Record summary:
Shown here is a 75-nucleotide sequence from Haemonchus placei, a member of the family "mir-5928 microRNA precursor family". Lineage of the source: Eukaryota > Opisthokonta > Bilateria > Rhabditida > Haemonchus. Rfam 15.1 lists 1,672 matches to the family in 12 species.

RNA sequence: GGUCCAAACUCGGAGUAGAGUAGUUUAGUAGGGUCAGCUGAUACUAAUAAUCUACUCUACUUCAAAUUUGGAUCA
Numbered sequence: 001g002g003u004c005c006a007a008a009c010u011c012g013g014a015g016u017a018g019a020g021u022a023g024u025u026u027a028g029u030a031g032g033g034u035c036a037g038c039u040g041a042u043a044c045u046a047a048u049a050a051u052c053u054a055c056u057c058u059a060c061u062u063c064a065a066a067u068u069u070g071g072a073u074c075a
Stems, first nucleotide, its partner, number of pairs: 001074008012063012025050003029046002033042003